[Rfam]
RNA sequence: GGUCUGUGAUGAAUAGUAAAAGGUCUGAUUAUCCUACAACUUGCAGUUCCAUGACCUUUCCUCCCAGCAGUUUCUCACCAGUCAUGGCACAGUAAUGGUGUGGCUGGCAGAGUGUUUGCUGACAGCUUGUGAUGUGUUCAGUUCAUGUUAACCUGAAGUAUCGGAGACAUGACUGGAACCAGCAUCCAAAAGUCUCUACUUGAAGGAGUUUGGGGUCUUGGAUUGUUAAAACUGGACAUGUGAUCUGACUUUUCUGCUGAGACC
Numbered sequence: 001g002g003u004c005u006g007u008g009a010u011g012a013a014u015a016g017u018a019a020a021a022g023g024u025c026u027g028a029u030u031a032u033c034c035u036a037c038a039a040c041u042u043g044c045a046g047u048u049c050c051a052u053g054a055c056c057u058u059u060c061c062u063c064c065c066a067g068c069a070g071u072u073u074c075u076c077a078c079c080a081g082u083c084a085u086g087g088c089a090c091a092g093u094a095a096u097g098g099u100g101u102g103g104c105u106g107g108c109a110g111a112g113u114g115u116u117u118g119c120u121g122a123c124a125g126c127u128u129g130u131g132a133u134g135u136g137u138u139c140a141g142u143u144c145a146u147g148u149u150a151a152c153c154u155g156a157a158g159u160a161u162c163g164g165a166g167a168c169a170u171g172a173c174u175g176g177a178a179c180c181a182g183c184a185u186c187c188a189a190a191a192g193u194c195u196c197u198a199c200u201u202g203a204a205g206g207a208g209u210u211u212g213g214g215g216u217c218u219u220g221g222a223u224u225g226u227u228a229a230a231a232c233u234g235g236a237c238a239u240g241u242g243a244u245c246u247g248a249c250u251u252u253u254c255u256g257c258u259g260a261g262a263c264c
Stems, first nucleotide, its partner, number of pairs: 001264004037247002041243002048222004053217002061208004065121006078107009129187001131186005144171006152163001

Shown here is a 264-nucleotide sequence from Nipponia nippon, a member of the family "Small Cajal body specific RNA 6". The source organism's lineage runs through Eukaryota, Euteleostomi, Aves, Neoaves and Nipponia. About the family: U88 is small Cajal body specific RNA (scaRNA). scaRNAs are a novel class of small nuclear RNAs which localise to the Cajal bodies. On this family, see Darzacq et al., EMBO J 2002: "Cajal body-specific small nuclear RNAs: a novel class of 2'-O-methylation and pseudouridylation guide RNAs". Pairs were carried over by alignment from the consensus structure, which is taken from published work. It is annotated as a small Cajal body RNA.